Background
This 78-nucleotide sequence from Rattus norvegicus belongs to the Rfam family "mir-26 microRNA precursor family". Its family is annotated with miRNA-mediated post-transcriptional gene silencing and RISC complex in the Gene Ontology.

[Rfam]
RNA sequence: CCGGGACCCAGUUCAAGUAAUUCAGGAUAGGUUGUGGUGCUGGCCAGCCUGUUCUCCAUUACUUGGCUCGGGGGCCGG
Numbered sequence: 001c002c003g004g005g006a007c008c009c010a011g012u013u014c015a016a017g018u019a020a021u022u023c024a025g026g027a028u029a030g031g032u033u034g035u036g037g038u039g040c041u042g043g044c045c046a047g048c049c050u051g052u053u054c055u056c057c058a059u060u061a062c063u064u065g066g067c068u069c070g071g072g073g074g075c076c077g078g
Base pairs, nucleotide, nucleotide: 002077003076004075007072008071009070011068014065015064016063017062018061019060020059021058024055025054026053027052028051029050030049031048032047033046

The source organism's lineage runs through Eukaryota, Vertebrata, Teleostomi, Sarcopterygii and Rattus.
A reference for the family is Lagos-Quintana et al. (2001), "Identification of novel genes coding for small expressed RNAs", Science.